Notes: The family of this 119-nucleotide sequence from Oryza sativa is "mir-399 microRNA precursor family". mir-399 was identified in both Arabidopsis thaliana and Oryza sativa computationally and was later experimentally verified. mir-399 is thought to target mRNAs coding for a phosphatase transporter. The organism belongs to Oryza sativa, within Eukaryota. Rfam links the family to the GO terms RISC complex and miRNA-mediated post-transcriptional gene silencing.
RNA sequence: AUGUGCAUUGCAGGGCAACUACUCCAUUGGCAGAGGGAUGGAUUGGAUAUGGAUAUGGCUGAUGCUUCCAUUUGAUCCCAUCCCUAUCUGCCAAAGGAGAUUUGCCCAGCGAUUCACUC
Dot-bracket structure: ....(.(((.(.((((((...((((..(((((((.(................................................).)))))))..))))..)))))).).))).)....